RNA sequence: UUUAAACUACUUGAAAAAAAACAUAGUUUCUUCUAUAUAUUAUAUGCGGUUUGUAAACAAACCGCUUGAAAAAACUUUUUUCAAGAUUUGAUUCGCUAUCCGCUUUAGCGGAUACGAUGAAAAAGUUCCUUGCAGAACAUAGCCGCAAGGCUCUGAUAAUCCUUGCAAAAAGUUUUUAUAGGA
Numbered sequence: 001u002u003u004a005a006a007c008u009a010c011u012u013g014a015a016a017a018a019a020a021a022c023a024u025a026g027u028u029u030c031u032u033c034u035a036u037a038u039a040u041u042a043u044a045u046g047c048g049g050u051u052u053g054u055a056a057a058c059a060a061a062c063c064g065c066u067u068g069a070a071a072a073a074a075c076u077u078u079u080u081u082c083a084a085g086a087u088u089u090g091a092u093u094c095g096c097u098a099u100c101c102g103c104u105u106u107a108g109c110g111g112a113u114a115c116g117a118u119g120a121a122a123a124a125g126u127u128c129c130u131u132g133c134a135g136a137a138c139a140u141a142g143c144c145g146c147a148a149g150g151c152u153c154u155g156a157u158a159a160u161c162c163u164u165g166c167a168a169a170a171a172g173u174u175u176u177u178a179u180a181g182g183a
Stems, first nucleotide, its partner, number of pairs: 013033002019029004046065008070177011083163001085161004
RNA: TD-1 RNA
Organism: Treponema denticola